Source information
Glycine riboswitch aptamer: a 99-nucleotide RNA sequence from Plantactinospora soyae. From the family's description: This family represents the bacterial glycine riboswitch.

RNA sequence: AACACUCACGAGCGAGAGACCGCCAGGCAACUGCACAGGCGGCGCCGAAGGGGCAAAUCCUCCCCGGAACCUCUCAGGCAAAAGGAGCCCGUGGGCAGG
Numbered sequence: 001a002a003c004a005c006u007c008a009c010g011a012g013c014g015a016g017a018g019a020c021c022g023c024c025a026g027g028c029a030a031c032u033g034c035a036c037a038g039g040c041g042g043c044g045c046c047g048a049a050g051g052g053g054c055a056a057a058u059c060c061u062c063c064c065c066g067g068a069a070c071c072u073c074u075c076a077g078g079c080a081a082a083a084g085g086a087g088c089c090c091g092u093g094g095g096c097a098g099g
Stems, first nucleotide, its partner, number of pairs: 006094005012088002020042004044079003047075002051073003058066001